[Rfam]
RNA sequence: AAACUAUUUCUAUUUCACAAUUUAGAAAAGUGAGAAAUGAAGAGUUUGUCAUUUGUCUGAAGUUACU
Numbered sequence: 001a002a003a004c005u006a007u008u009u010c011u012a013u014u015u016c017a018c019a020a021u022u023u024a025g026a027a028a029a030g031u032g033a034g035a036a037a038u039g040a041a042g043a044g045u046u047u048g049u050c051a052u053u054u055g056u057c058u059g060a061a062g063u064u065a066c067u
Stems, first nucleotide, its partner, number of pairs: 002064003006038005013028004043054002046051001
A member of the RNA family "Small nucleolar RNA SNORD77" from Sciurus carolinensis, 67 nucleotides long. Rfam 15.1 lists 396 matches to the family in 167 species. The literature on the family includes a 2004 paper in Curr Biol by Tycowski et al., "Guide RNAs with 5' caps and novel box C/D snoRNA-like domains for modification of snRNAs in metazoa". Clan: SNORD77 clan. NCBI's taxonomy places the organism under Eukaryota, Teleostomi, Euteleostomi, Tetrapoda, Sciurus. A search with the family's covariance model found it, with a score of 36 bits. The family's consensus secondary structure was predicted with RNAalifold. Its family is annotated with RNA processing and nucleolus in the Gene Ontology.